[Rfam]
The family of this 76-nucleotide RNA from Cycloclasticus sp. symbiont of Poecilosclerida sp. M is "SAH (S-adenosyl-L-homocysteine) riboswitch aptamer". The family's consensus secondary structure is taken from published work. On this family, see Wang et al., Mol Cell 2008: "Riboswitches that sense S-adenosylhomocysteine and activate genes involved in coenzyme recycling".
RNA sequence: UUGGGUAAGGAACGCUGCGACAGGGAUCCCCUGCUAGGCUUAUUCAAGGUUUAAAUUUCAACGGCGUUCAUUAUUA
Numbered sequence: 001u002u003g004g005g006u007a008a009g010g011a012a013c014g015c016u017g018c019g020a021c022a023g024g025g026a027u028c029c030c031c032u033g034c035u036a037g038g039c040u041u042a043u044u045c046a047a048g049g050u051u052u053a054a055a056u057u058u059c060a061a062c063g064g065c066g067u068u069c070a071u072u073a074u075u076a
Stems, first nucleotide, its partner, number of pairs: 002046007021033005